[Rfam]
RNA sequence: GGAUCCUUGACUCACUCUGAAAUCUACCAUCACGCCCUGUGGUCUAUUUCUAUUUUUGUGCAAGGAAGAGGAAAUUUGGCCUACUACUCACCGCGAUAUACCAGCGACUAAGCUCUUGUGGAUAUAGCGGUCCAUCAUCAUGGCCACAU
Numbered sequence: 001g002g003a004u005c006c007u008u009g010a011c012u013c014a015c016u017c018u019g020a021a022a023u024c025u026a027c028c029a030u031c032a033c034g035c036c037c038u039g040u041g042g043u044c045u046a047u048u049u050c051u052a053u054u055u056u057u058g059u060g061c062a063a064g065g066a067a068g069a070g071g072a073a074a075u076u077u078g079g080c081c082u083a084c085u086a087c088u089c090a091c092c093g094c095g096a097u098a099u100a101c102c103a104g105c106g107a108c109u110a111a112g113c114u115c116u117u118g119u120g121g122a123u124a125u126a127g128c129g130g131u132c133c134a135u136c137a138u139c140a141u142g143g144c145c146a147c148a149u
Base pairs, nucleotide, nucleotide: 007063008062009061019050020049021048022047023046026043027042028041029040030039078145079144080143081142091130092129093128094127096125097124098123101121102120
A member of the RNA family "Small nucleolar RNA snR80" from Fusarium torreyae, 149 nucleotides long. Rfam 15.1 lists 447 matches to the family in 358 species. The literature on the family includes a 2004 paper in Nucleic Acids Res by Schattner et al., "Genome-wide searching for pseudouridylation guide snoRNAs: analysis of the Saccharomyces cerevisiae genome". The source organism's lineage runs through Eukaryota, Fungi, Ascomycota, Sordariomycetes and Fusarium torreyae species complex. Rfam links the family to the GO terms nucleolus and RNA processing. It is annotated as an H/ACA-box small nucleolar RNA.